Small nucleolar RNA SNORD115: an 81-nucleotide RNA sequence from Trichechus manatus. The organism belongs to Trichechus manatus, within Eukaryota. Rfam links the family to the GO terms nucleolus and RNA processing. A search with the family's covariance model found it, with a score of 70 bits.

RNA sequence: UGGUCAAAGAUGACACCUAUACUUGUCUUGAAGACAGAUGAUGACAUAAAAAUCAUGCUUAACAGGAAUACGCUGAGGCUC
Numbered sequence: 001u002g003g004u005c006a007a008a009g010a011u012g013a014c015a016c017c018u019a020u021a022c023u024u025g026u027c028u029u030g031a032a033g034a035c036a037g038a039u040g041a042u043g044a045c046a047u048a049a050a051a052a053u054c055a056u057g058c059u060u061a062a063c064a065g066g067a068a069u070a071c072g073c074u075g076a077g078g079c080u081c
Base pairs, nucleotide, nucleotide: 002080003079004078005075006074009071

Rfam classes the family as a C/D-box small nucleolar RNA.
A reference for the family is Cavaille et al. (2000), "Identification of brain-specific and imprinted small nucleolar RNA genes exhibiting an unusual genomic organization", Proc Natl Acad Sci U S A.